[Rfam]
RNA sequence: GAUACUCUUCAGGGCGGGGUGUAAGUCCCCACCGGCGGUAAAGCCCGCGAGCCGAGAGGCAUGAUUCGGUGAAACUCCGAGGCCGACAGUAUAGUCUGGAUGAAAGAAGAUUGUG
Numbered sequence: 001g002a003u004a005c006u007c008u009u010c011a012g013g014g015c016g017g018g019g020u021g022u023a024a025g026u027c028c029c030c031a032c033c034g035g036c037g038g039u040a041a042a043g044c045c046c047g048c049g050a051g052c053c054g055a056g057a058g059g060c061a062u063g064a065u066u067c068g069g070u071g072a073a074a075c076u077c078c079g080a081g082g083c084c085g086a087c088a089g090u091a092u093a094g095u096c097u098g099g100a101u102g103a104a105a106g107a108a109g110a111u112u113g114u115g
Base pairs, nucleotide, nucleotide: 003113004112006110007109008108009107010106017029018028019027031095032094033085034084035048036047037046038045043083044082053059065081066080067079068078069077087098088097089096
RNA: FMN riboswitch aptamer (RFN element)